This 86-nucleotide sequence from Frankliniella occidentalis belongs to the Rfam family "mir-7 microRNA precursor family".
RNA sequence: UGGCUACAACAGUAUGGAAGACUAGUGAUUUUGUUGUUCUGUAUUUGAGAAACAAGGAAUCACUAACUCCCGUACGGUAGUGGCCA
Numbered sequence: 001u002g003g004c005u006a007c008a009a010c011a012g013u014a015u016g017g018a019a020g021a022c023u024a025g026u027g028a029u030u031u032u033g034u035u036g037u038u039c040u041g042u043a044u045u046u047g048a049g050a051a052a053c054a055a056g057g058a059a060u061c062a063c064u065a066a067c068u069c070c071c072g073u074a075c076g077g078u079a080g081u082g083g084c085c086a
Stems, first nucleotide, its partner, number of pairs: 002085006010077001012075006019068002025063007034055005
Notes: Lineage of the source: Eukaryota > Eumetazoa > Protostomia > Mandibulata > Frankliniella. Rfam describes the family as follows. This family represents the microRNA (miRNA) precursor mir-7.